[Rfam]
Shown here is a 134-nucleotide sequence from Peribacillus cavernae, a member of the family "FMN riboswitch aptamer (RFN element)".

RNA sequence: GUCUAUCUUCGGGGCGGGGUGGAAUUCCCCACCGGCGGUGAUGAAGCAAUUGCUUCAAAGCCCGCGAGCCUUAUCAAGGCAGAUUUGGUGUGAUUCCAAAGCCGACAGUACAGUCUGGAUGGGAGAAGAUGGAG
Number, nucleotide and partner (000 for none) at each position: 001g000002u000003c132004u131005a130006u129007c128008u127009u126010c125011g000012g000013g000014g000015c000016g000017g029018g028019g027020u000021g000022g000023a000024a000025u000026u000027c019028c018029c017030c000031a114032c113033c104034g103035g065036c064037g063038g062039u000040g000041a000042u000043g000044a000045a000046g000047c000048a000049a000050u000051u000052g000053c000054u000055u000056c000057a000058a000059a000060g102061c101062c038063c037064g036065c035066g000067a000068g080069c079070c078071u000072u000073a000074u000075c000076a000077a000078g070079g069080c068081a000082g000083a000084u100085u099086u098087g097088g096089u000090g000091u000092g000093a000094u000095u000096c088097c087098a086099a085100a084101g061102c060103c034104g033105a000106c117107a116108g115109u000110a000111c000112a000113g032114u031115c108116u107117g106118g000119a000120u000121g000122g000123g000124a000125g010126a009127a008128g007129a006130u005131g004132g003133a000134g000
Pairs were carried over by alignment from the consensus structure, which is taken from published work. Rfam links the family to the GO term FMN binding.